[Rfam]
RNA sequence: UACGCUAAGUUCGCUGCCUGAGAAAUCAGGCAAGGGCUGGUGAUUAUUUAAUCACCGGCCU
Numbered sequence: 001u002a003c004g005c006u007a008a009g010u011u012c013g014c015u016g017c018c019u020g021a022g023a024a025a026u027c028a029g030g031c032a033a034g035g036g037c038u039g040g041u042g043a044u045u046a047u048u049u050a051a052u053c054a055c056c057g058g059c060c061u
Stems, first nucleotide, its partner, number of pairs: 015032004022027001035060010
The family of this 61-nucleotide sequence from Alteromonadales bacterium TW-7 is "Pseudomonas sRNA P26". NCBI's taxonomy places the organism under Bacteria, Pseudomonadati, Pseudomonadota, Gammaproteobacteria, Alteromonadales. The family's consensus secondary structure was predicted with RNAalifold. By type it is a non-coding RNA gene. Rfam's curators put it in the seed alignment. Rfam's curators write: This small RNA (sRNA) was computationally identified in the genome of the opportunistic pathogen Pseudomonas aeruginosa and its expression verified by northern blot analysis. P26 is conserved across many Gammaproteobacteria species and appears to be consistently located between the DNA directed RNA polymerase (beta subunit) and 50S ribosomal protein L7/L12 genes. For this family Rfam cites "Identification of 17 Pseudomonas aeruginosa sRNAs and prediction of sRNA-encoding genes in 10 diverse pathogens using the bioinformatic tool sRNAPredict2" (Livny et al., Nucleic Acids Res, 2006).